A member of the RNA family "SAM riboswitch aptamer (S box leader)" from Luteimonas cucumeris, 120 nucleotides long. NCBI's taxonomy places the organism under Bacteria, Pseudomonadota, Gammaproteobacteria, Lysobacteraceae, Luteimonas.
[Rfam]
RNA sequence: CAUCCAUCGAGACCGGCUGAGGGACAGGCCCUUAGACGCCGGGGCAACCGGAUGGAGCGAAAGCUCCGUCAAAGGUGCCAAGUCCUGCGGGGACCUGUGCGUCCGCCGUGAAGAUGGUUG
Numbered sequence: 001c002a003u004c005c006a007u008c009g010a011g012a013c014c015g016g017c018u019g020a021g022g023g024a025c026a027g028g029c030c031c032u033u034a035g036a037c038g039c040c041g042g043g044g045c046a047a048c049c050g051g052a053u054g055g056a057g058c059g060a061a062a063g064c065u066c067c068g069u070c071a072a073a074g075g076u077g078c079c080a081a082g083u084c085c086u087g088c089g090g091g092g093a094c095c096u097g098u099g100c101g102u103c104c105g106c107c108g109u110g111a112a113g114a115u116g117g118u119u120g
Base pairs, nucleotide, nucleotide: 001120002119004117005116006115007114008113013042014041015040016039017038021031022030023029025087026086027085028084043079044078045077046076048075049074051070052069053068054067055066056065083112088108089107090106092104
Dot-bracket structure: ((.(((((....(((((...(((.[[[[)))......)))))((((.((.((((((........))))))...))))))...(]]]](((.(...........).)))...)))))).))